[Rfam]
RNA sequence: GUUUUAAACCCGUAUCUCAAGGGACUAAGGGCGUCUGCACUACACUCAAGUGUUGUGUCAAAAACCUUAAUUUUUGGAUCGCCUUCACGGGGUAUCCGGGAGGGCAGC
Numbered sequence: 001g002u003u004u005u006a007a008a009c010c011c012g013u014a015u016c017u018c019a020a021g022g023g024a025c026u027a028a029g030g031g032c033g034u035c036u037g038c039a040c041u042a043c044a045c046u047c048a049a050g051u052g053u054u055g056u057g058u059c060a061a062a063a064a065c066c067u068u069a070a071u072u073u074u075u076g077g078a079u080c081g082c083c084u085u086c087a088c089g090g091g092g093u094a095u096c097c098g099g100g101a102g103g104g105c106a107g108c
Stems, first nucleotide, its partner, number of pairs: 008034001009031002013027002015024003037058004042053004084106001086104001088102001091097002

The family of this 108-nucleotide RNA sequence from Oesophagostomum dentatum is "SL2 RNA".
Its family is annotated with mRNA trans splicing, via spliceosome in the Gene Ontology.
Rfam 15.1 lists 598 matches to the family in 38 species.